[Rfam]
RNA: Small nucleolar RNA Z206
Organism: Miscanthus lutarioriparius
RNA sequence: AAGGCGGCCGAAAUCACGGUGACUGCAACUGUGCGCCGCUUCACGGCACUGCUAGGCGGCAGCGGCACCACAGCGGUACAAGCAGGCGUGCCCCAAGCGGAUGGCGGUGCGAUGUGGUUCAGAGCAGCGGC
Numbered sequence: 001a002a003g004g005c006g007g008c009c010g011a012a013a014u015c016a017c018g019g020u021g022a023c024u025g026c027a028a029c030u031g032u033g034c035g036c037c038g039c040u041u042c043a044c045g046g047c048a049c050u051g052c053u054a055g056g057c058g059g060c061a062g063c064g065g066c067a068c069c070a071c072a073g074c075g076g077u078a079c080a081a082g083c084a085g086g087c088g089u090g091c092c093c094c095a096a097g098c099g100g101a102u103g104g105c106g107g108u109g110c111g112a113u114g115u116g117g118u119u120c121a122g123a124g125c126a127g128c129g130g131c
Stems, first nucleotide, its partner, number of pairs: 004128002007125002